The family of this 123-nucleotide RNA from Aerobium aerolatum is "Rhizobiales sRNA Atu_C8".
Taxonomically the source falls in Aerobium aerolatum (Bacteria, Pseudomonadati, Pseudomonadota, Hyphomicrobiales).
The base pairs follow the family's consensus structure, which was predicted with CMfinder.
Rfam classes the family as a small RNA.
A search with the family's covariance model found it, with a score of 99 bits.
RNA sequence: UAUGAACAAGAUGAUCAUUCUCGUAGUAUGCAGGCGCGUGGGCAAGGCGGUGUAACCGCCGGGCGAAAGCACCCCAUGCGCAAAUGACAGGCUCCCAAAAGGGGGCCUUUUUUAUUGCCUUCA
Numbered sequence: 001u002a003u004g005a006a007c008a009a010g011a012u013g014a015u016c017a018u019u020c021u022c023g024u025a026g027u028a029u030g031c032a033g034g035c036g037c038g039u040g041g042g043c044a045a046g047g048c049g050g051u052g053u054a055a056c057c058g059c060c061g062g063g064c065g066a067a068a069g070c071a072c073c074c075c076a077u078g079c080g081c082a083a084a085u086g087a088c089a090g091g092c093u094c095c096c097a098a099a100a101g102g103g104g105g106c107c108u109u110u111u112u113u114a115u116u117g118c119c120u121u122c123a
Base pairs, nucleotide, nucleotide: 030118031117032116034081035080036079037078038077039076040075041074042073046060047059048058049057050056063070064069087109089108090107091106092105093104094103095102